A. fumigatus sRNA Afu_254: a 149-nucleotide RNA from Aspergillus homomorphus.

RNA sequence: UAUCAGUCUAUCAGACAAUCCAAACCAUUUUCAAGCCUAUCUUCUCAAGCUCCAAGUCUUCCUCUCGAUCAACAUGUCUCCCUGCUCUUGCAACUGCUGCUCCGGCAACUGCUCCAACUGCUCCUGCGGCUCUUGCAGCGUUGGUCUUC
Numbered sequence: 001u002a003u004c005a006g007u008c009u010a011u012c013a014g015a016c017a018a019u020c021c022a023a024a025c026c027a028u029u030u031u032c033a034a035g036c037c038u039a040u041c042u043u044c045u046c047a048a049g050c051u052c053c054a055a056g057u058c059u060u061c062c063u064c065u066c067g068a069u070c071a072a073c074a075u076g077u078c079u080c081c082c083u084g085c086u087c088u089u090g091c092a093a094c095u096g097c098u099g100c101u102c103c104g105g106c107a108a109c110u111g112c113u114c115c116a117a118c119u120g121c122u123c124c125u126g127c128g129g130c131u132c133u134u135g136c137a138g139c140g141u142u143g144g145u146c147u148u149c
Stems, first nucleotide, its partner, number of pairs: 083107004090100003111136002120127002
NCBI's taxonomy places the organism under Eukaryota, Opisthokonta, leotiomyceta, Aspergillaceae, Aspergillus homomorphus.